[Rfam]
RNA sequence: UGUUCGUGCACAUGAUGAAAACCAUGUUGGUAGGGACAUCUGAGAGUAUGAUGAAUACCAACAUCUCUGAGCUGGACA
Numbered sequence: 001u002g003u004u005c006g007u008g009c010a011c012a013u014g015a016u017g018a019a020a021a022c023c024a025u026g027u028u029g030g031u032a033g034g035g036a037c038a039u040c041u042g043a044g045a046g047u048a049u050g051a052u053g054a055a056u057a058c059c060a061a062c063a064u065c066u067c068u069g070a071g072c073u074g075g076a077c078a
Stems, first nucleotide, its partner, number of pairs: 001078005
Small nucleolar RNA SNORD74: a 78-nucleotide sequence from Platysternon megacephalum. The literature on the family includes a 2002 paper in Mol Cell Biol by Galardi et al., "Purified box C/D snoRNPs are able to reproduce site-specific 2'-O-methylation of target RNA in vitro". The source organism's lineage runs through Eukaryota, Sauropsida, Testudinoidea, Platysternidae and Platysternon. Pairs were carried over by alignment from the consensus structure, which was predicted with PFOLD. It is annotated as a C/D-box small nucleolar RNA.